Shown here is a 45-nucleotide RNA sequence from Phyllobacterium myrsinacearum, a member of the family "Guanidine-II riboswitch aptamer (mini-ykkC)".
Pairs were carried over by alignment from the consensus structure, which is taken from published work.
[Rfam]
RNA sequence: UGCACAGGACGACCUGUGUCAUGGUUGCGCAUGGGGACGGCCCCG
Numbered sequence: 001u002g003c004a005c006a007g008g009a010c011g012a013c014c015u016g017u018g019u020c021a022u023g024g025u026u027g028c029g030c031a032u033g034g035g036g037a038c039g040g041c042c043c044c045g
Stems, first nucleotide, its partner, number of pairs: 002019007032045005